A member of the RNA family "Glycine riboswitch aptamer" from Moraxella sp. VT-16-12, 92 nucleotides long. A search with the family's covariance model found it, with a score of 45 bits.
RNA sequence: CCAACACAAUCUGGAGAGAACAAAAGUUCACCGAAGGGAAGAAAACGGAUUUAUCUGUUGAAAAUCUCAGGUAUCAGGACAGAUGGGGUGCA
Numbered sequence: 001c002c003a004a005c006a007c008a009a010u011c012u013g014g015a016g017a018g019a020a021c022a023a024a025a026g027u028u029c030a031c032c033g034a035a036g037g038g039a040a041g042a043a044a045a046c047g048g049a050u051u052u053a054u055c056u057g058u059u060g061a062a063a064a065u066c067u068c069a070g071g072u073a074u075c076a077g078g079a080c081a082g083a084u085g086g087g088g089u090g091c092a
Base pairs, nucleotide, nucleotide: 007086009084010083011082012081013080019028020027021026030072031071032070033068034067037066038065043059044058